[Rfam]
RNA sequence: UACGCUCCUUUGCGUGUUUUAGUCUGGCAUAGAGAAAUUCAUUUAGACGUGUGAUUUCUCUAUGCUUUUAUUAUAUCA
Numbered sequence: 001u002a003c004g005c006u007c008c009u010u011u012g013c014g015u016g017u018u019u020u021a022g023u024c025u026g027g028c029a030u031a032g033a034g035a036a037a038u039u040c041a042u043u044u045a046g047a048c049g050u051g052u053g054a055u056u057u058c059u060c061u062a063u064g065c066u067u068u069u070a071u072u073a074u075a076u077c078a
Base pairs, nucleotide, nucleotide: 001016002015003014004013005012026066027065028064029063030062031061032060033059034058035057036056037055
ctRNA: a 78-nucleotide RNA from Lactococcus lactis. Gene Ontology terms of the family: plasmid copy number maintenance and mRNA binding. NCBI's taxonomy places the organism under Bacteria, Bacillati, Bacilli, Lactobacillales, Lactococcus. Rolling circle replication plasmids contain a number of mechanisms to maintain a low copy number. One of these methods is to transcribe a small RNA called ctRNA (for counter-transcribed RNA) than is transcribed on the opposite strand to RepB the replication initiation protein. ctRNA binds to the mRNA of repB and causes translational inhibition. It is annotated as an antisense RNA. For this family Rfam cites "Involvement of antisense RNA in replication control of the lactococcal plasmid pND324" (Duan et al., FEMS Microbiol Lett, 1998).